[Rfam]
RNA sequence: AUCAUCCAGUUCCCUUUCCCAUUGGCUCUUAACACUGGUCUUGGUGGUUGCAAAAGUAGAAGAGCAUACUGAAAUUGGCUGCAUAGCCUUAUAAUCUGGUAUGUAGCGUGUGGCUAGAUUCAAACAGGG
Number, nucleotide and partner (000 for none) at each position: 001a000002u000003c059004a000005u058006c000007c056008a000009g000010u000011u000012c000013c000014c000015u000016u000017u000018c000019c047020c046021a045022u044023u043024g000025g040026c000027u038028c037029u000030u000031a000032a000033c000034a000035c000036u000037g028038g027039u000040c025041u000042u000043g023044g022045u021046g020047g019048u000049u000050g000051c000052a000053a000054a000055a000056g007057u000058a005059g003060a000061a000062g000063a000064g000065c000066a000067u000068a000069c000070u000071g000072a000073a000074a000075u117076u116077g115078g114079c113080u112081g111082c000083a000084u000085a000086g000087c000088c000089u000090u108091a000092u106093a000094a000095u000096c000097u000098g000099g000100u000101a000102u000103g000104u000105a000106g092107c000108g090109u000110g000111u081112g080113g079114c078115u077116a076117g075118a000119u000120u000121c000122a000123a000124a000125c000126a000127g000128g000129g000

Rfam assigns this 129-nucleotide RNA from Nannospalax galili to the family "Small nucleolar RNA SNORA61". A search with the family's covariance model found it, with a score of 92 bits. Rfam's curators write: ACA61 is a member of the H/ACA class of snoRNA that guide the sites of modification of uridines to pseudouridines. By type it is an H/ACA-box small nucleolar RNA. Rfam links the family to the GO terms nucleolus and RNA processing.